[Rfam]
Shown here is a 119-nucleotide RNA sequence from Carnegiea gigantea, a member of the family "Plastid-psbA-1 3UTR RNA".
It is annotated as a cis-regulatory element.
NCBI's taxonomy places the organism under Eukaryota, Viridiplantae, Streptophytina, Gunneridae, Carnegiea.
Pairs were carried over by alignment from the consensus structure, which was predicted with LocARNA.
Clan: Plastid-psbA 3UTR RNA clan.
From the family's description: Plastid psbA-1 is a non-coding RNA (ncRNA) present in plastids.
The literature on the family includes a 2023 paper in Plant Commun by Richter et al., "Retrograde signaling in plants: A critical review focusing on the GUN pathway and beyond".
RNA sequence: UUGAAGCUCUAUCUACAAAUGGAUAAAUUUUCAUUCAUAGUUUAGUGUAUAUGAGUUAUUGAAAGUAAAGGGGCAAUACCUGUUUAUUGACAGCCCAAGAAAUUGGUUAUUACUUCUUU
Number, nucleotide and partner (000 for none) at each position: 001u000002u000003g000004a000005a000006g000007c000008u023009c022010u021011a020012u019013c000014u000015a000016c000017a000018a000019a012020u011021g010022g009023a008024u000025a000026a000027a000028u000029u000030u000031u000032c000033a000034u000035u000036c000037a000038u000039a000040g000041u000042u000043u000044a000045g000046u000047g000048u000049a000050u000051a000052u000053g000054a000055g000056u000057u000058a000059u000060u000061g000062a000063a000064a000065g000066u000067a119068a118069a117070g116071g115072g114073g113074c000075a111076a110077u109078a108079c000080c105081u000082g103083u000084u101085u100086a000087u098088u097089g000090a000091c000092a000093g000094c000095c000096c000097a088098a087099g000100a085101a084102a000103u082104u000105g080106g000107u000108u078109a077110u076111u075112a000113c073114u072115u071116c070117u069118u068119u067